[Rfam]
RNA sequence: ACCUGGACUAAGUCCAGGAAUAUGGUGGCUCAGAAAUGGAUGGGUCAUUUGCUUAACCAAUUCGAAAUCUCCUUCUCUCCAACACUGUGCCAACUCAUGACUCUCAUGGCCCAUGCUUGGAAAGAUCUGGACCAAGUGUCAGAGGACCUCUGACUUUACCAGCCACCACUAA
Numbered sequence: 001a002c003c004u005g006g007a008c009u010a011a012g013u014c015c016a017g018g019a020a021u022a023u024g025g026u027g028g029c030u031c032a033g034a035a036a037u038g039g040a041u042g043g044g045u046c047a048u049u050u051g052c053u054u055a056a057c058c059a060a061u062u063c064g065a066a067a068u069c070u071c072c073u074u075c076u077c078u079c080c081a082a083c084a085c086u087g088u089g090c091c092a093a094c095u096c097a098u099g100a101c102u103c104u105c106a107u108g109g110c111c112c113a114u115g116c117u118u119g120g121a122a123a124g125a126u127c128u129g130g131a132c133c134a135a136g137u138g139u140c141a142g143a144g145g146a147c148c149u150c151u152g153a154c155u156u157u158a159c160c161a162g163c164c165a166c167c168a169c170u171a172a
Base pairs, nucleotide, nucleotide: 011170012169013168017164018163025157027155030153031152032151033150034149046087047086049084052136053135054134060073074125075124076123078121079120095109096108097107098106099105100104110145111144114141115140117138
The family of this 172-nucleotide RNA sequence from Crocuta crocuta is "Hovlinc ribozyme (hominin vlincRNA-located)". The match comes from Rfam's covariance-model search (150 bits). The base pairs follow the family's consensus structure, which is taken from published work. A reference for the family is Chen et al. (2021), "Hovlinc is a recently evolved class of ribozyme found in human lncRNA", Nat Chem Biol. From the family's description: Hovlinc is a recently evolved class of self-cleaving ribozyme found in a very long non coding RNA (vlincRNA) in hominins, including humans (genus Homo), and chimpanzees and bonobos (genus Pan), but missing in gorillas (genus Gorilla). Its family is annotated with catalytic activity in the Gene Ontology.